[Rfam]
Nucleotides: 056
Base pairs, nucleotide, nucleotide: 002051004049005048006047007046008045009044010043012041013040019036020035021034022033023032024031
Number, partner (000 for none) and nucleotide at each position: 001000u002051a003000c004049g005048g006047a007046g008045c009044a010043a011000u012041a013040a014000a015000c016000u017000c018000u019036u020035u021034c022033u023032u024031g025000g026000u027000c028000u029000a030000u031024c032023a033022a034021g035020a036019g037000g038000g039000g040013u041012u042000u043010u044009u045008g046007c047006u048005c049004c050000u051002u052000u053000a054000u055000u056000u